Shown here is a 274-nucleotide sequence from Chiloscyllium punctatum, a member of the family "Small Cajal body specific RNA 6". From the family's description: U88 is small Cajal body specific RNA (scaRNA). scaRNAs are a novel class of small nuclear RNAs which localise to the Cajal bodies. U88 is found associated with both fibrillarin and Gar1p and co-localises with coilin in Cajal bodies. The base pairs follow the family's consensus structure, which is taken from published work. Rfam 15.1 lists 1,309 matches to the family in 627 species. It scores 76 bits against the family's covariance model. It is annotated as a small Cajal body RNA.

[Rfam]
RNA sequence: GGUCAGUGAUGAUGGAUAAACGCUCUGAUGGCACUUUAUUAAAUGCCCAUAUGCUCGCUCCCAGGUGCUCCUGCGUUUUCCAUUCUGCACCAGUUGCGCUGUGAUGGAAUUGGAGUUCCUGACAGUGACCGAUGCUGCUGUUUCAGUUGACAUUCUCGCAGAGCAAUGUGGGAUGUCUUUACAGCGUGCAUCCUACAGAAUUCGUCCCAUAGGAGCUUUUGAGCGUGGUGGGAUUUCUCUCUGGUGCAUGAAUGCAAGUUUUCAAGCUGAGACC
Numbered sequence: 001g002g003u004c005a006g007u008g009a010u011g012a013u014g015g016a017u018a019a020a021c022g023c024u025c026u027g028a029u030g031g032c033a034c035u036u037u038a039u040u041a042a043a044u045g046c047c048c049a050u051a052u053g054c055u056c057g058c059u060c061c062c063a064g065g066u067g068c069u070c071c072u073g074c075g076u077u078u079u080c081c082a083u084u085c086u087g088c089a090c091c092a093g094u095u096g097c098g099c100u101g102u103g104a105u106g107g108a109a110u111u112g113g114a115g116u117u118c119c120u121g122a123c124a125g126u127g128a129c130c131g132a133u134g135c136u137g138c139u140g141u142u143u144c145a146g147u148u149g150a151c152a153u154u155c156u157c158g159c160a161g162a163g164c165a166a167u168g169u170g171g172g173a174u175g176u177c178u179u180u181a182c183a184g185c186g187u188g189c190a191u192c193c194u195a196c197a198g199a200a201u202u203c204g205u206c207c208c209a210u211a212g213g214a215g216c217u218u219u220u221g222a223g224c225g226u227g228g229u230g231g232g233a234u235u236u237c238u239c240u241c242u243g244g245u246g247c248a249u250g251a252a253u254g255c256a257a258g259u260u261u262u263c264a265a266g267c268u269g270a271g272a273c274c
Stems, first nucleotide, its partner, number of pairs: 001274004037254004044225003048221002058215004062121004067116002079108006086101002088098001131192005149177008